[Rfam]
RNA sequence: AACAAACGACAGGGGAGCGCACGUCAGUGCGCUGAGAGUGCGGCUCGCCGCAGACCCUCGAACCUGCUCCGGUUAGUACCGGCGAAGGGAGUCGGGAAUCUCAAGAG
Numbered sequence: 001a002a003c004a005a006a007c008g009a010c011a012g013g014g015g016a017g018c019g020c021a022c023g024u025c026a027g028u029g030c031g032c033u034g035a036g037a038g039u040g041c042g043g044c045u046c047g048c049c050g051c052a053g054a055c056c057c058u059c060g061a062a063c064c065u066g067c068u069c070c071g072g073u074u075a076g077u078a079c080c081g082g083c084g085a086a087g088g089g090a091g092u093c094g095g096g097a098a099u100c101u102c103a104a105g106a107g
Base pairs, nucleotide, nucleotide: 007094008093009092010091011058012057013056014055017032018031019030020029021028039052040051041050042049043048063088064087065086069082070081071080072079

A member of the RNA family "TPP riboswitch aptamer (THI element)", 107 nucleotides long. It scores 68 bits against the family's covariance model.